This 73-nucleotide sequence from Cyanophora paradoxa belongs to the Rfam family "tRNA". Pairs were carried over by alignment from the consensus structure, which is taken from published work. The source organism's lineage runs through Eukaryota, Glaucocystophyceae, Cyanophorales, Cyanophoraceae and Cyanophora. Gene Ontology term of the family: triplet codon-amino acid adaptor activity. Rfam's curators put it in the seed alignment. Rfam's curators write: Transfer RNA (tRNA) molecules are approximately 80 nucleotides in length.
Nucleotides: 073
Stems, first nucleotide, its partner, number of pairs: 001072007010025004027043005049065005
Number, partner (000 for none) and nucleotide at each position: 001072g002071c003070g004069g005068g006067u007066g008000u009000a010025g011024c012023u013022c014000a015000g016000c017000u018000g019000g020000u021000a022013g023012a024011g025010c026000g027043c028042a029041a030040c031039c032000u033000u034000g035000c036000c037000a038000a039031g040030g041029u042028u043027g044000a045000u046000g047000u048000c049065g050064c051063g052062c053061g054000u055000u056000c057000g058000a059000a060000u061053c062052g063051c064050g065049u066007c067006a068005c069004c070003c071002g072001c073000u